[Rfam]
This 75-nucleotide RNA sequence from Crocodylus porosus belongs to the Rfam family "Mammalian CPEB3 ribozyme". The organism belongs to Crocodylus, within Eukaryota. A search with the family's covariance model found it, with a score of 44 bits. From the family's description: The mammalian CPEB3 ribozyme is a self cleaving RNA located in the second intron of the CPEB3 gene which belongs to a family of genes regulating messenger RNA polyadenylation. This ribozyme is highly conserved and found only in mammals. The CPEB3 ribozyme is structurally and biochemically related to the human hepatitis delta virus (HDV) ribozyme and the HDV ribozyme is proposed to have arisen from the human transcriptome. There is currently only one other known self cleaving ribozyme in mammals, the CoTC motif.
RNA sequence: AUUGCAAGUCUGAGGUCACAGCAGUAGUGCUCAUGACACAGCCUGUCAGAUUCCAACAAAUCUGGAACUUCUGCU
Numbered sequence: 001a002u003u004g005c006a007a008g009u010c011u012g013a014g015g016u017c018a019c020a021g022c023a024g025u026a027g028u029g030c031u032c033a034u035g036a037c038a039c040a041g042c043c044u045g046u047c048a049g050a051u052u053c054c055a056a057c058a059a060a061u062c063u064g065g066a067a068c069u070u071c072u073g074c075u
Stems, first nucleotide, its partner, number of pairs: 014043003020075005026069001027039003047064006